This 100-nucleotide RNA sequence from Microcebus murinus belongs to the Rfam family "Y RNA".
A search with the family's covariance model found it, with a score of 52 bits.
A reference for the family is Dhahbi et al. (2013), "5'-YRNA fragments derived by processing of transcripts from specific YRNA genes and pseudogenes are abundant in human serum and plasma", Physiol Genomics.
By type it is a non-coding RNA gene.
The source organism's lineage runs through Eukaryota, Gnathostomata, Euteleostomi, Euarchontoglires and Microcebus.
Rfam 15.1 lists 26,986 matches to the family in 650 species.
RNA sequence: GGUUGGUCCAAGCGCAAUGGUGUUUACCACUAAAUUGUUCACAACCAGUGACAGAUUGUUUUGUUCCUUCUCUACUCCAAUUUCAUUUGACUAGCCUUAA
Number, nucleotide and partner (000 for none) at each position: 001g096002g095003u094004u093005g092006g091007u090008c089009c000010a088011a087012g000013c000014g084015c000016a082017a081018u080019g000020g078021u000022g077023u000024u000025u000026a000027c000028c000029a064030c063031u000032a061033a060034a059035u058036u000037g000038u000039u000040c000041a000042c000043a000044a000045c000046c000047a000048g000049u000050g000051a000052c000053a000054g000055a000056u000057u000058g035059u034060u033061u032062u000063g030064u029065u000066c000067c000068u000069u000070c000071u000072c000073u000074a000075c000076u000077c022078c020079a000080a018081u017082u016083u000084c014085a000086u000087u011088u010089g008090a007091c006092u005093a004094g003095c002096c001097u000098u000099a000100a000